[Rfam]
RNA sequence: AGAGGUCACAAGUUUGAGGCCAUAGAAGAAAUGCUUAUGGUGCAGCCCUGUCAGAUUCCAGUGGAUCUGCAAAUUCUGCU
Numbered sequence: 001a002g003a004g005g006u007c008a009c010a011a012g013u014u015u016g017a018g019g020c021c022a023u024a025g026a027a028g029a030a031a032u033g034c035u036u037a038u039g040g041u042g043c044a045g046c047c048c049u050g051u052c053a054g055a056u057u058c059c060a061g062u063g064g065a066u067c068u069g070c071a072a073a074u075u076c077u078g079c080u
Stems, first nucleotide, its partner, number of pairs: 016048001018047003024080002027077004032042002052069007

The record is an 80-nucleotide RNA sequence from Alligator sinensis, which matches "Mammalian CPEB3 ribozyme" in Rfam. NCBI's taxonomy places the organism under Eukaryota, Gnathostomata, Dipnotetrapodomorpha, Archosauria, Alligator. Rfam describes the family as follows. The mammalian CPEB3 ribozyme is a self cleaving RNA located in the second intron of the CPEB3 gene which belongs to a family of genes regulating messenger RNA polyadenylation. This ribozyme is highly conserved and found only in mammals. The CPEB3 ribozyme is structurally and biochemically related to the human hepatitis delta virus (HDV) ribozyme and the HDV ribozyme is proposed to have arisen from the human transcriptome. There is currently only one other known self cleaving ribozyme in mammals, the CoTC motif. The match comes from Rfam's covariance-model search (44 bits).